[Rfam]
The family of this 72-nucleotide sequence from Dasyornis broadbenti is "Small nucleolar RNA SNORD34". About the family: snoRNA U34 is found in intron 5 of the ribosomal protein L13a gene in humans. Rfam classes the family as a C/D-box small nucleolar RNA. Lineage of the source: Eukaryota > Metazoa > Deuterostomia > Tetrapoda > Dasyornis. The family's consensus secondary structure was predicted with PFOLD.
RNA sequence: UGGUGUCAGUGAUGUCUCUUUUACCUACAUUGUUUGACUCGCCCUGAGAAAAAUCCCAAUCCUGAGACACCU
Numbered sequence: 001u002g003g004u005g006u007c008a009g010u011g012a013u014g015u016c017u018c019u020u021u022u023a024c025c026u027a028c029a030u031u032g033u034u035u036g037a038c039u040c041g042c043c044c045u046g047a048g049a050a051a052a053a054u055c056c057c058a059a060u061c062c063u064g065a066g067a068c069a070c071c072u
Stems, first nucleotide, its partner, number of pairs: 002071001004069004